A member of the RNA family "tRNA" from Thamnidium elegans, 72 nucleotides long. It is annotated as a transfer RNA. NCBI's taxonomy places the organism under Eukaryota, Mucoromycota, Mucoromycetes, Mucoraceae, Thamnidium. The base pairs follow the family's consensus structure, which is taken from published work.
RNA sequence: ACGAGUUUAGUUAAGUGGUUAUAAUUUCUAGUUUCCACCUAGAGGUCACUGGUUCGAGUCCAGUAACUCGUA
Numbered sequence: 001a002c003g004a005g006u007u008u009a010g011u012u013a014a015g016u017g018g019u020u021a022u023a024a025u026u027u028c029u030a031g032u033u034u035c036c037a038c039c040u041a042g043a044g045g046u047c048a049c050u051g052g053u054u055c056g057a058g059u060c061c062a063g064u065a066a067c068u069c070g071u072a
Stems, first nucleotide, its partner, number of pairs: 001071007010025004027043005048064005